Alphaproteobacterial sRNA ar7: a 137-nucleotide RNA from Kumtagia ephedrae. NCBI's taxonomy places the organism under Bacteria, Pseudomonadati, Hyphomicrobiales, Phyllobacteriaceae, Kumtagia. By type it is a small RNA. The match comes from Rfam's covariance-model search (102 bits).
[Rfam]
RNA sequence: CAUCGGCAGUUAAUGCCGGGUCCGGUCAAGGCCCGUCCCCCGCCUACCCGGACUGUGCGGCAGCCCCUUCCCCCUCUCCGGGCUGCCGCAUGUUUCAGUAAGGCCGCCGUGGUUCCCCUCCACCACGGCGGCAUUUU
Numbered sequence: 001c002a003u004c005g006g007c008a009g010u011u012a013a014u015g016c017c018g019g020g021u022c023c024g025g026u027c028a029a030g031g032c033c034c035g036u037c038c039c040c041c042g043c044c045u046a047c048c049c050g051g052a053c054u055g056u057g058c059g060g061c062a063g064c065c066c067c068u069u070c071c072c073c074c075u076c077u078c079c080g081g082g083c084u085g086c087c088g089c090a091u092g093u094u095u096c097a098g099u100a101a102g103g104c105c106g107c108c109g110u111g112g113u114u115c116c117c118c119u120c121c122a123c124c125a126c127g128g129c130g131g132c133a134u135u136u137u
Stems, first nucleotide, its partner, number of pairs: 022051004030044003055091011104131010